Shown here is a 46-nucleotide sequence, a member of the family "Acido-Lenti-1 RNA". Rfam's curators put it in the seed alignment. Rfam classes the family as a small RNA.

[Rfam]
RNA sequence: CCCACGGCUGACGCUGUGGGCUACUCUGUGACGCCGCUACGCGGCU
Numbered sequence: 001c002c003c004a005c006g007g008c009u010g011a012c013g014c015u016g017u018g019g020g021c022u023a024c025u026c027u028g029u030g031a032c033g034c035c036g037c038u039a040c041g042c043g044g045c046u
Base pairs, nucleotide, nucleotide: 001020002019003018004017005016006015007014008013033045034044035043036042037041